[Rfam]
This 62-nucleotide RNA sequence belongs to the Rfam family "Pseudomonas sRNA P26".
Rfam describes the family as follows. This small RNA (sRNA) was computationally identified in the genome of the opportunistic pathogen Pseudomonas aeruginosa and its expression verified by northern blot analysis. P26 is conserved across many Gammaproteobacteria species and appears to be consistently located between the DNA directed RNA polymerase (beta subunit) and 50S ribosomal protein L7/L12 genes.
RNA sequence: AAAUUCAAGAACGCAGCUUAAGUAAUUAGGCUGAUGGCUGGUGAUUUUAUAAUCACCAGCCU
Numbered sequence: 001a002a003a004u005u006c007a008a009g010a011a012c013g014c015a016g017c018u019u020a021a022g023u024a025a026u027u028a029g030g031c032u033g034a035u036g037g038c039u040g041g042u043g044a045u046u047u048u049a050u051a052a053u054c055a056c057c058a059g060c061c062u
Stems, first nucleotide, its partner, number of pairs: 014033005036061010